[Rfam]
RNA sequence: CAUACGGUAUCAGCAAAAAAGCGCUGACAGCGGUAUGGCUUCUUUUGAGGU
Dot-bracket structure: (((((.((..((((........))))...)).)))))..............
A member of the RNA family "L31-Gammaproteobacteria ribosomal protein leader" from Conservatibacter flavescens, 51 nucleotides long. Pairs were carried over by alignment from the consensus structure, which is taken from published work. By type it is a cis-regulatory leader. For this family Rfam cites "Discovery of 20 novel ribosomal leader candidates in bacteria and archaea" (Eckert and Weinberg, BMC Microbiol, 2020).